[Rfam]
RNA: Molybdenum/Tungsten riboswitch aptamer (Moco RNA motif)
RNA sequence: AAUUAGAUACUACUCCUUAGCCGAUUUACCUAACCCCUUUGGCAUGGUAGCCGGCCGACCGGUAUAGUGGGAAACUGCUAUGCUUCCCUAUUUGGAAAGGAGUGCAAGAAAAAAAGGU
Numbered sequence: 001a002a003u004u005a006g007a008u009a010c011u012a013c014u015c016c017u018u019a020g021c022c023g024a025u026u027u028a029c030c031u032a033a034c035c036c037c038u039u040u041g042g043c044a045u046g047g048u049a050g051c052c053g054g055c056c057g058a059c060c061g062g063u064a065u066a067g068u069g070g071g072a073a074a075c076u077g078c079u080a081u082g083c084u085u086c087c088c089u090a091u092u093u094g095g096a097a098a099g100g101a102g103u104g105c106a107a108g109a110a111a112a113a114a115a116g117g118u
Base pairs, nucleotide, nucleotide: 003112004111011104012103013102014101015100016099020055021054022053023052025050026049028048029047030046035042036041061085062083063082064081065080066079067078068077069076070075086095087094